[Rfam]
RNA sequence: GACCGGUUUGCGGGAGAGAGCAGCCUGGCUGCCGCCGAAGGGGAAAUCGCCCACAAAUCUCUCAGGCAAAAGAACCGCCGCCGGUAA
Numbered sequence: 001g002a003c004c005g006g007u008u009u010g011c012g013g014g015a016g017a018g019a020g021c022a023g024c025c026u027g028g029c030u031g032c033c034g035c036c037g038a039a040g041g042g043g044a045a046a047u048c049g050c051c052c053a054c055a056a057a058u059c060u061c062u063c064a065g066g067c068a069a070a071a072g073a074a075c076c077g078c079c080g081c082c083g084g085u086a087a
Stems, first nucleotide, its partner, number of pairs: 006082001008080001010078004020032004034067003037063002041061003
RNA: Glycine riboswitch aptamer
Organism: Aminobacter sp. J15